[Rfam]
RNA: A. fumigatus sRNA Afu_309
Organism: Zopfia rhizophila
RNA sequence: AACUCUUUUCUCCUCCAUGACUUGUGUUCAGUCAUCCCGUCCACCCUCUGGGGUGUGUUCGGUCGAUGGCUGUUCAGUUCGUCCACACUAUGGAGCCAUCAAACCCCCAUGAUGUCAAUCUUCCGGACGACAGGCCAAAGAGCGAGUCGGCGUGUUUCGUCGCUGCUUGAGUUCGCCCUUGGGCUUGAAUUCGGUGGUGGGAGGCAUGGCCAGGGCGACUGAUUCCUGAUCCCUUUGCUGAGGCCGUCGGCUGGUGAUGCUAGGGAAAAACCCAGUCUUUUGCCUACAUAU
Numbered sequence: 001a002a003c004u005c006u007u008u009u010c011u012c013c014u015c016c017a018u019g020a021c022u023u024g025u026g027u028u029c030a031g032u033c034a035u036c037c038c039g040u041c042c043a044c045c046c047u048c049u050g051g052g053g054u055g056u057g058u059u060c061g062g063u064c065g066a067u068g069g070c071u072g073u074u075c076a077g078u079u080c081g082u083c084c085a086c087a088c089u090a091u092g093g094a095g096c097c098a099u100c101a102a103a104c105c106c107c108c109a110u111g112a113u114g115u116c117a118a119u120c121u122u123c124c125g126g127a128c129g130a131c132a133g134g135c136c137a138a139a140g141a142g143c144g145a146g147u148c149g150g151c152g153u154g155u156u157u158c159g160u161c162g163c164u165g166c167u168u169g170a171g172u173u174c175g176c177c178c179u180u181g182g183g184c185u186u187g188a189a190u191u192c193g194g195u196g197g198u199g200g201g202a203g204g205c206a207u208g209g210c211c212a213g214g215g216c217g218a219c220u221g222a223u224u225c226c227u228g229a230u231c232c233c234u235u236u237g238c239u240g241a242g243g244c245c246g247u248c249g250g251c252u253g254g255u256g257a258u259g260c261u262a263g264g265g266a267a268a269a270a271c272c273c274a275g276u277c278u279u280u281u282g283c284c285u286a287c288a289u290a291u
Stems, first nucleotide, its partner, number of pairs: 018137002021134005026075001029072003033068004037062003041057001042055002044052001046051001083129001086126001088125001091117003095113001097111001148209001150207001154205004164194001166193001169192006175184002214284003217277005230266005237260002242252004